The family of this 46-nucleotide RNA from Serinibacter salmoneus is "L31-Actinobacteria ribosomal protein leader". The family is grouped with related families in Rfam's "Ribosomal Protein L31 Leader clan". By type it is a cis-regulatory leader.

RNA sequence: UUGGUCACCGGUUCACGCCCGCCCACCGGCGAGCGACCCGGCGGCA
Numbered sequence: 001u002u003g004g005u006c007a008c009c010g011g012u013u014c015a016c017g018c019c020c021g022c023c024c025a026c027c028g029g030c031g032a033g034c035g036a037c038c039c040g041g042c043g044g045c046a
Base pairs, nucleotide, nucleotide: 004045006044008041009040010039011038016035017034018033020031021030022029023028